This 88-nucleotide RNA from Embleya scabrispora belongs to the Rfam family "ZMP/ZTP riboswitch aptamer (pfl RNA motif)".
Gene Ontology terms of the family: one-carbon metabolic process and regulation of purine nucleotide biosynthetic process.
Lineage of the source: Bacteria > Actinomycetota > Kitasatosporales > Streptomycetaceae > Embleya.
The match comes from Rfam's covariance-model search (57 bits).

RNA sequence: UGACCGUGCCGCGACUGGCGUACACGUGGAAUGACCACGGGGGAGCGGCGGUUCCGCCGACGAGGUGUCGUCCGCCUGGGCACCCGGC
Number, nucleotide and partner (000 for none) at each position: 001u000002g000003a052004c051005c050006g000007u000008g049009c048010c047011g046012c045013g000014a000015c042016u041017g076018g075019c074020g073021u000022a000023c000024a000025c000026g038027u037028g036029g035030a000031a000032u000033g000034a000035c029036c028037a027038c026039g000040g000041g016042g015043g000044a000045g012046c011047g010048g009049c008050g005051g004052u003053u000054c000055c000056g000057c000058c000059g000060a000061c000062g000063a000064g000065g083066u082067g081068u080069c079070g000071u000072c000073c020074g019075c018076c017077u000078g000079g069080g068081c067082a066083c065084c000085c000086g000087g000088c000